[Rfam]
Shown here is a 711-nucleotide RNA, a member of the family "MISL RNA".
The sequence is in the family's curated seed alignment.
RNA sequence: GGAUAAGCCGGAGGCAACUUCGGUGAAAGGUAUGGAUCUCCUGACGGUCCUUACCCCUUGUAGAGGUGCUUGCACCGAAGCGAGGCAGAAAGUCACCCACUCUGGCAAACGGGUUCGCGCCCGGAUGUUACGCGAAUACAGAGUGUGGCGAUUAGCCCAAGGCGAUAGAAACUGAGGGCAAAUCGAGUUAGCGGACCGAGACGGUUUCGGUAUUGGUCCAAACAUGGUGCCCUCCCGGAGAGGGUAUAAUUGCUACCAUGAGUCAGGAAAUCGCGGACAGGAGGCCGACACUAUCGCACAGGUGAAAGCAACUUCCGAGGUUUAGGGGUGUAAUGAUCCGGCAAAUCGCGAAGCCCCAAGCGCUGCUCCAAAUAAGAGUAACGACCGUGAAGAGAAGCAAUUUGAGAGGUAAGAGGUCAGACCCGUAACUUCGGGCAAACGCUCCCUACCCGGGGAGGCCGACCCGAAGGAAAGAGGUGUUUAGGUGAAACAAAUACGGAUAGCCUGAAUAUCAUGUCUGGGGCAUCGAGAUCGCAAGUCACGGUGUAACAGGCUGAGAGGCCUCACUCAAUAUCUUGGUCGGGUAACCGGUCAAGCGGUCCUGCUACGAGAUCGACAGCUUCCUUGCCAGGAAGAAUAGCGUCGGGGAGCUGACAGCCUGUGAAAGCAGUGCGCCUAAUGUCAGUAUAGGACGAGAGCGUGGCGAACUCC
Numbered sequence: 001g002g003a004u005a006a007g008c009c010g011g012a013g014g015c016a017a018c019u020u021c022g023g024u025g026a027a028a029g030g031u032a033u034g035g036a037u038c039u040c041c042u043g044a045c046g047g048u049c050c051u052u053a054c055c056c057c058u059u060g061u062a063g064a065g066g067u068g069c070u071u072g073c074a075c076c077g078a079a080g081c082g083a084g085g086c087a088g089a090a091a092g093u094c095a096c097c098c099a100c101u102c103u104g105g106c107a108a109a110c111g112g113g114u115u116c117g118c119g120c121c122c123g124g125a126u127g128u129u130a131c132g133c134g135a136a137u138a139c140a141g142a143g144u145g146u147g148g149c150g151a152u153u154a155g156c157c158c159a160a161g162g163c164g165a166u167a168g169a170a171a172c173u174g175a176g177g178g179c180a181a182a183u184c185g186a187g188u189u190a191g192c193g194g195a196c197c198g199a200g201a202c203g204g205u206u207u208c209g210g211u212a213u214u215g216g217u218c219c220a221a222a223c224a225u226g227g228u229g230c231c232c233u234c235c236c237g238g239a240g241a242g243g244g245u246a247u248a249a250u251u252g253c254u255a256c257c258a259u260g261a262g263u264c265a266g267g268a269a270a271u272c273g274c275g276g277a278c279a280g281g282a283g284g285c286c287g288a289c290a291c292u293a294u295c296g297c298a299c300a301g302g303u304g305a306a307a308g309c310a311a312c313u314u315c316c317g318a319g320g321u322u323u324a325g326g327g328g329u330g331u332a333a334u335g336a337u338c339c340g341g342c343a344a345a346u347c348g349c350g351a352a353g354c355c356c357c358a359a360g361c362g363c364u365g366c367u368c369c370a371a372a373u374a375a376g377a378g379u380a381a382c383g384a385c386c387g388u389g390a391a392g393a394g395a396a397g398c399a400a401u402u403u404g405a406g407a408g409g410u411a412a413g414a415g416g417u418c419a420g421a422c423c424c425g426u427a428a429c430u431u432c433g434g435g436c437a438a439a440c441g442c443u444c445c446c447u448a449c450c451c452g453g454g455g456a457g458g459c460c461g462a463c464c465c466g467a468a469g470g471a472a473a474g475a476g477g478u479g480u481u482u483a484g485g486u487g488a489a490a491c492a493a494a495u496a497c498g499g500a501u502a503g504c505c506u507g508a509a510u511a512u513c514a515u516g517u518c519u520g521g522g523g524c525a526u527c528g529a530g531a532u533c534g535c536a537a538g539u540c541a542c543g544g545u546g547u548a549a550c551a552g553g554c555u556g557a558g559a560g561g562c563c564u565c566a567c568u569c570a571a572u573a574u575c576u577u578g579g580u581c582g583g584g585u586a587a588c589c590g591g592u593c594a595a596g597c598g599g600u601c602c603u604g605c606u607a608c609g610a611g612a613u614c615g616a617c618a619g620c621u622u623c624c625u626u627g628c629c630a631g632g633a634a635g636a637a638u639a640g641c642g643u644c645g646g647g648g649a650g651c652u653g654a655c656a657g658c659c660u661g662u663g664a665a666a667g668c669a670g671u672g673c674g675c676c677u678a679a680u681g682u683c684a685g686u687a688u689a690g691g692a693c694g695a696g697a698g699c700g701u702g703g704c705g706a707a708c709u710c711c
Stems, first nucleotide, its partner, number of pairs: 007024007029055004034050005065076004098145007110123004115135005149185004155179002158176001168208005193219007201211001223260005229245006248402006273297004279292001325357004334348003365379004406569003413565004429469007442457006478511009516554005523547006530540003575596009597615005604641004620635006650686007657673002660669003696710003